[Rfam]
RNA: Purine riboswitch aptamer
RNA sequence: UAUCCAAGGAAACGAACAUCUCGUAUAUCCUCAAUAAUAUGGUUUGAGGGUUUCUACUAGGAGCCAAAGAAUCCUAACUACGAGUAUGGGCUGUGUGUAU
Numbered sequence: 001u002a003u004c005c006a007a008g009g010a011a012a013c014g015a016a017c018a019u020c021u022c023g024u025a026u027a028u029c030c031u032c033a034a035u036a037a038u039a040u041g042g043u044u045u046g047a048g049g050g051u052u053u054c055u056a057c058u059a060g061g062a063g064c065c066a067a068a069g070a071a072u073c074c075u076a077a078c079u080a081c082g083a084g085u086a087u088g089g090g091c092u093g094u095g096u097g098u099a100u
Base pairs, nucleotide, nucleotide: 020084021083022082023081024080025079029049030048031047032046033045034044058076059075060074061073062072
Dot-bracket structure: ...................((((((...((((((.........))))))........(((((.........)))))..))))))................